[Rfam]
RNA sequence: AGAGCGCAGGCGUACCCGAGGACGAGGCCGCCCUGCGAGCCUUCACGGAGGCUAUGACCAGGUAUUCGGCCCCUCCCGGGGACGCACCACGC
Dot-bracket structure: .....(...(..(.(..(.((....(((.(.((((..((((((....)))))).....))))...)..))))).)..).)..)...).....
RNA: Hepatitis C virus stem-loop SL8670
Organism: Orthohepacivirus hominis